[Rfam]
RNA sequence: CGGGCACGACAGGGGAGCGCAUCAGCGCUGAGAGUGCGGGCGACCGCAGACCCUCGUACCUGAUCCGGCUAGCACCGGCGUAGGGAGUCGAGUCUCAGGGACC
Numbered sequence: 001c002g003g004g005c006a007c008g009a010c011a012g013g014g015g016a017g018c019g020c021a022u023c024a025g026c027g028c029u030g031a032g033a034g035u036g037c038g039g040g041c042g043a044c045c046g047c048a049g050a051c052c053c054u055c056g057u058a059c060c061u062g063a064u065c066c067g068g069c070u071a072g073c074a075c076c077g078g079c080g081u082a083g084g085g086a087g088u089c090g091a092g093u094c095u096c097a098g099g100g101a102c103c
Stems, first nucleotide, its partner, number of pairs: 007090004011054004017028004035048005059084004065078004